[Rfam]
RNA sequence: UUGAAUGUGAAUUGAUUUAUGUUUGGAGAAACUUUAUUAAAAGUGAUUCUUGUGGGUUGAUGUUGUUUGGAUAG
Numbered sequence: 001u002u003g004a005a006u007g008u009g010a011a012u013u014g015a016u017u018u019a020u021g022u023u024u025g026g027a028g029a030a031a032c033u034u035u036a037u038u039a040a041a042a043g044u045g046a047u048u049c050u051u052g053u054g055g056g057u058u059g060a061u062g063u064u065g066u067u068u069g070g071a072u073a074g
Stems, first nucleotide, its partner, number of pairs: 011061008021053002025049003031044004

A member of the RNA family "MIR5272 microRNA precursor family" from Medicago truncatula, 74 nucleotides long. Lineage of the source: Eukaryota > Tracheophyta > Mesangiospermae > fabids > Medicago. It scores 72 bits against the family's covariance model. The family has 6 seed sequences and 271 matches in Rfam 15.1. The base pairs follow the family's consensus structure, which was predicted with RNAalifold.